[Rfam]
RNA sequence: GGGGUUGAUUGGGGUGCUGGUGCCCCUCACAGUCUUCAAAACUGCUCGGGAGGCGCGUGACGUCUCCGGUGGGUUCGAUUCCCACGCAAUCCC
Numbered sequence: 001g002g003g004g005u006u007g008a009u010u011g012g013g014g015u016g017c018u019g020g021u022g023c024c025c026c027u028c029a030c031a032g033u034c035u036u037c038a039a040a041a042c043u044g045c046u047c048g049g050g051a052g053g054c055g056c057g058u059g060a061c062g063u064c065u066c067c068g069g070u071g072g073g074u075u076c077g078a079u080u081c082c083c084a085c086g087c088a089a090u091c092c093c
Base pairs, nucleotide, nucleotide: 001093002092003091004090005089006088007087012027013026014025016023017022030044031043032042033041049067050066051065052064053063070084071083072082073081
RNA: Selenocysteine transfer RNA
Organism: Ectobacillus ponti